[Rfam]
Shown here is a 378-nucleotide RNA sequence from Candidatus Fukatsuia symbiotica, a member of the family "Bacterial RNase P class A".
The family's consensus secondary structure is taken from published work.
It scores 304 bits against the family's covariance model.
Lineage of the source: Bacteria > Pseudomonadati > Gammaproteobacteria > Yersiniaceae > Candidatus Fukatsuia.
RNA sequence: GGAGUUGACUAGACAGUCGCCGCUUUACCUCAAUCCUCUCCGGAGAGAAGUGGUAGAGGGGAGGAAAGUCCGGGCUCCACAGAGCGGGGUGCCAGGUAAUUCCUGGGGGCUUAAGCCCACGACAAGUGCAGCAGAGAGUAGACCGCCGAUGGCUCGCGUAAGCGAGAUCAGGUAAGGGUGAAAGGGUGCGGUAAGAGCGCACCGCGCAGCUGGCAACAGCUUGUGGCAAGGUAAACUCCACCCGGAGCAAGGCCAAAUAGGGGUUCACAUGGUGCGGCUCGUACUGAACCCGGGUAGGCUGCUUGAGCUAGUGAGCGAUUGCUGGCCCAGAUGAAUGACUGUCCACGACAGGACCCGGCUUACCGGUUGACUCCCCUA
Numbered sequence: 001g002g003a004g005u006u007g008a009c010u011a012g013a014c015a016g017u018c019g020c021c022g023c024u025u026u027a028c029c030u031c032a033a034u035c036c037u038c039u040c041c042g043g044a045g046a047g048a049a050g051u052g053g054u055a056g057a058g059g060g061g062a063g064g065a066a067a068g069u070c071c072g073g074g075c076u077c078c079a080c081a082g083a084g085c086g087g088g089g090u091g092c093c094a095g096g097u098a099a100u101u102c103c104u105g106g107g108g109g110c111u112u113a114a115g116c117c118c119a120c121g122a123c124a125a126g127u128g129c130a131g132c133a134g135a136g137a138g139u140a141g142a143c144c145g146c147c148g149a150u151g152g153c154u155c156g157c158g159u160a161a162g163c164g165a166g167a168u169c170a171g172g173u174a175a176g177g178g179u180g181a182a183a184g185g186g187u188g189c190g191g192u193a194a195g196a197g198c199g200c201a202c203c204g205c206g207c208a209g210c211u212g213g214c215a216a217c218a219g220c221u222u223g224u225g226g227c228a229a230g231g232u233a234a235a236c237u238c239c240a241c242c243c244g245g246a247g248c249a250a251g252g253c254c255a256a257a258u259a260g261g262g263g264u265u266c267a268c269a270u271g272g273u274g275c276g277g278c279u280c281g282u283a284c285u286g287a288a289c290c291c292g293g294g295u296a297g298g299c300u301g302c303u304u305g306a307g308c309u310a311g312u313g314a315g316c317g318a319u320u321g322c323u324g325g326c327c328c329a330g331a332u333g334a335a336u337g338a339c340u341g342u343c344c345a346c347g348a349c350a351g352g353a354c355c356c357g358g359c360u361u362a363c364c365g366g367u368u369g370a371c372u373c374c375c376c377u378a
Stems, first nucleotide, its partner, number of pairs: 001374010012343007020061002023058006066361003070358005075247004082280004087243005092106005107118004121238002126236002128232002143177002145173003153166005185203006204227001205225005210219003251300004261291006271285005307326008
Dot-bracket structure: ((((((((((.(((((((.((.((((((........................)))))).))....[[[.[[[[[((((...[[[[.((((((((((.....)))))((((....))))..((...((((.............(((((.....(((((....)))))....)))..)).......((((((.......))))))(((((((((....))).))))).)...))..)))))))))))))...((((......((((((....(((((.]]]]))))))))))).....))))......((((((((....))))))))..........)))))))..........]]]]]]]]...))))))))))....